Rfam assigns this 144-nucleotide RNA sequence from Microbulbifer thermotolerans to the family "Molybdenum/Tungsten riboswitch aptamer (Moco RNA motif)". The literature on the family includes a 2008 paper in Mol Microbiol by Regulski et al., "in molybdenum cofactor and tungsten cofactor metabolism". Rfam links the family to the GO terms regulation of gene expression, tungstate binding and molybdenum ion binding. NCBI's taxonomy places the organism under Bacteria, Pseudomonadati, Gammaproteobacteria, Microbulbiferaceae, Microbulbifer. Pairs were carried over by alignment from the consensus structure, which is taken from published work. The match comes from Rfam's covariance-model search (69 bits).

RNA sequence: CCGCAGUUUAAACACCGAGUUCCCUCAACCUAAGCGCUGUGCGUAUGGAACGGGAACCGUGGCUGGAAAAUUUUUCCAACACCAGGGCCGUCCGGGAAACCGGCCUGCCUCCCGGCUUUGGAAAGGCGUUUAAUGUUAAAAGAC
Numbered sequence: 001c002c003g004c005a006g007u008u009u010a011a012a013c014a015c016c017g018a019g020u021u022c023c024c025u026c027a028a029c030c031u032a033a034g035c036g037c038u039g040u041g042c043g044u045a046u047g048g049a050a051c052g053g054g055a056a057c058c059g060u061g062g063c064u065g066g067a068a069a070a071u072u073u074u075u076c077c078a079a080c081a082c083c084a085g086g087g088c089c090g091u092c093c094g095g096g097a098a099a100c101c102g103g104c105c106u107g108c109c110u111c112c113c114g115g116c117u118u119u120g121g122a123a124a125g126g127c128g129u130u131u132a133a134u135g136u137u138a139a140a141a142g143a144c
Stems, first nucleotide, its partner, number of pairs: 011130003015126002019057006029048002034044004059082003085110004090105001092103004111121002